[Rfam]
RNA sequence: AUAGUAAAUCGGUAGGUGAGACUACCAUGGAGAUACGGAUGACUACCGCAAAAUAGUGGAGACACUAUUCGUUGGUCAGCAGCCUCUGUCGUGAAGGCAGAGACUAAUGUCAUUUCAUCGCUCCAUGAUGUUAAAGCUUGGACGAGAAUAUAAGAA
Numbered sequence: 001a002u003a004g005u006a007a008a009u010c011g012g013u014a015g016g017u018g019a020g021a022c023u024a025c026c027a028u029g030g031a032g033a034u035a036c037g038g039a040u041g042a043c044u045a046c047c048g049c050a051a052a053a054u055a056g057u058g059g060a061g062a063c064a065c066u067a068u069u070c071g072u073u074g075g076u077c078a079g080c081a082g083c084c085u086c087u088g089u090c091g092u093g094a095a096g097g098c099a100g101a102g103a104c105u106a107a108u109g110u111c112a113u114u115u116c117a118u119c120g121c122u123c124c125a126u127g128a129u130g131u132u133a134a135a136g137c138u139u140g141g142a143c144g145a146g147a148a149u150a151u152a153a154g155a156a
Stems, first nucleotide, its partner, number of pairs: 005152002008149002011143001013095001015138003020132003026127007039113005045076004054067002057064002082104001084102002088098003
The family of this 156-nucleotide RNA from Granulicatella adiacens is "M-box riboswitch aptamer (ykoK leader)". On this family, see Barrick et al., Proc Natl Acad Sci U S A 2004: "New RNA motifs suggest an expanded scope for riboswitches in bacterial genetic control". Lineage of the source: Bacteria > Bacillota > Bacilli > Granulicatella > Granulicatella adiacens. The pairing is the family consensus, mapped onto this sequence. M-box riboswitch, also know as ykoK leader is described as a metaloregulatory RNA that sense divalent metals and function as a genetic control element of genes related to divalent metal transport in bacteria.